[Rfam]
RNA sequence: GGAUAAUGAUGACAAUGUGUGAUAAGGUCUCGUUCGUCGUAAUGGUGAGAAUUAAUGUUUUAACCUUGACGACCAUUCUGUUAUAUCACCACCCAUAAACUGAGUCC
Dot-bracket structure: ((((.............................................(((.........)...))....................................))))
Numbered sequence: 001g002g003a004u005a006a007u008g009a010u011g012a013c014a015a016u017g018u019g020u021g022a023u024a025a026g027g028u029c030u031c032g033u034u035c036g037u038c039g040u041a042a043u044g045g046u047g048a049g050a051a052u053u054a055a056u057g058u059u060u061u062a063a064c065c066u067u068g069a070c071g072a073c074c075a076u077u078c079u080g081u082u083a084u085a086u087c088a089c090c091a092c093c094c095a096u097a098a099a100c101u102g103a104g105u106c107c
Stems, first nucleotide, its partner, number of pairs: 001107004050067002052062001